[Rfam]
RNA: RtT RNA
Organism: Osedax symbiont Rs1
RNA sequence: UUUUUUUGGUGGUCUGGUUGGUUUAGGAGCCGCGGAGCGGGUUUGAGUCGAGCGCAAGCGACACAUUGCCGCAUCUUGACCGUGGCAAGCCGCAGGGUGAGGAGUGCAGCGACGAGUCAACCCGUCACUGAUAGUG
Numbered sequence: 001u002u003u004u005u006u007u008g009g010u011g012g013u014c015u016g017g018u019u020g021g022u023u024u025a026g027g028a029g030c031c032g033c034g035g036a037g038c039g040g041g042u043u044u045g046a047g048u049c050g051a052g053c054g055c056a057a058g059c060g061a062c063a064c065a066u067u068g069c070c071g072c073a074u075c076u077u078g079a080c081c082g083u084g085g086c087a088a089g090c091c092g093c094a095g096g097g098u099g100a101g102g103a104g105u106g107c108a109g110c111g112a113c114g115a116g117u118c119a120a121c122c123c124g125u126c127a128c129u130g131a132u133a134g135u136g
Base pairs, nucleotide, nucleotide: 015127016126017125018124020122021121023119033099034098042094044092045091049060050059067087068086069085070084071083072082